[Rfam]
Nucleotides: 135
Base pairs, nucleotide, nucleotide: 004056005055006054007053016043017042018041019040071122072121073120074119088110090108091107
Number, partner (000 for none) and nucleotide at each position: 001000c002000u003000u004056c005055c006054c007053a008000u009000u010000u011000g012000a013000c014000u015000g016043c017042u018041a019040c020000u021000u022000g023000u024000u025000u026000g027000c028000a029000c030000u031000u032000c033000a034000a035000a036000a037000u038000a039000a040019g041018u042017a043016g044000c045000u046000a047000u048000g049000c050000u051000u052000g053007u054006g055005g056004g057000a058000u059000a060000u061000a062000g063000a064000a065000g066000u067000a068000u069000c070000u071122g072121c073120c074119a075000u076000a077000g078000u079000u080000u081000u082000a083000a084000g085000g086000a087000g088110a089000a090108g091107a092000c093000u094000g095000a096000u097000a098000g099000u100000a101000u102000c103000u104000u105000c106000u107091u108090c109000c110088u111000a112000u113000a114000u115000u116000u117000a118000a119074u120073g121072g122071c123000a124000a125000a126000a127000c128000a129000u130000a131000u132000u133000a134000a135000a